Rfam assigns this 71-nucleotide RNA from Pseudopedobacter sp. to the family "Fluoride riboswitch aptamer (crcB RNA motif)". Rfam links the family to the GO terms positive regulation of gene expression and response to fluoride. The source organism's lineage runs through Bacteria, Pseudomonadati, Sphingobacteriales, Sphingobacteriaceae and Pseudopedobacter. It scores 50 bits against the family's covariance model.
RNA sequence: AAUAAUCAGGGUGAUGGUGUUCCACCCAUUUGAACCGACCAAUUUUUUGGUAUGAUGACGCCUACCGAUAA
Numbered sequence: 001a002a003u004a005a006u007c008a009g010g011g012u013g014a015u016g017g018u019g020u021u022c023c024a025c026c027c028a029u030u031u032g033a034a035c036c037g038a039c040c041a042a043u044u045u046u047u048u049g050g051u052a053u054g055a056u057g058a059c060g061c062c063u064a065c066c067g068a069u070a071a
Base pairs, nucleotide, nucleotide: 010026011025012024013023016062017061018060019059020058021057038051039050040049041048042047